[Rfam]
Shown here is an 81-nucleotide RNA from Erpetoichthys calabaricus, a member of the family "mir-129 microRNA precursor family". Rfam 15.1 lists 1,242 matches to the family in 559 species. NCBI's taxonomy places the organism under Eukaryota, Opisthokonta, Deuterostomia, Polypteridae, Erpetoichthys. The match comes from Rfam's covariance-model search (69 bits). A reference for the family is Lagos-Quintana et al. (2002), "Identification of tissue-specific microRNAs from mouse", Curr Biol.
RNA sequence: ACGGAUCUUUUUGCGGUCUGGGCUUUUUGUCGGCUCAGGCCGCUACAGGAAACAGAAAGCCCUUACCCCAAAAAGCAUCCG
Numbered sequence: 001a002c003g004g005a006u007c008u009u010u011u012u013g014c015g016g017u018c019u020g021g022g023c024u025u026u027u028u029g030u031c032g033g034c035u036c037a038g039g040c041c042g043c044u045a046c047a048g049g050a051a052a053c054a055g056a057a058a059g060c061c062c063u064u065a066c067c068c069c070a071a072a073a074a075g076c077a078u079c080c081g
Base pairs, nucleotide, nucleotide: 007075008074009073010072011071012070013069015067016066017065020062021061022060023059025057027055028054029053030052